[Rfam]
Nucleotides: 077
Base pairs, nucleotide, nucleotide: 009069010068011067013065014064018060019059023054024053025052026051029049030048031047032046033045034044035043
Number, partner (000 for none) and nucleotide at each position: 001000a002000u003000u004000g005000c006000g007000c008000c009069c010068c011067g012000a013065c014064u015000u016000g017000a018060g019059u020000g021000g022000a023054a024053a025052u026051c027000c028000u029049u030048u031047u032046u033045u034044u035043u036000g037000c038000a039000u040000u041000u042000g043035a044034a045033a046032a047031a048030a049029a050000a051026g052025a053024u054023u055000g056000g057000g058000a059019a060018c061000g062000g063000a064014a065013g066000g067011c068010g069009g070000a071000c072000a073000a074000a075000g076000g077000c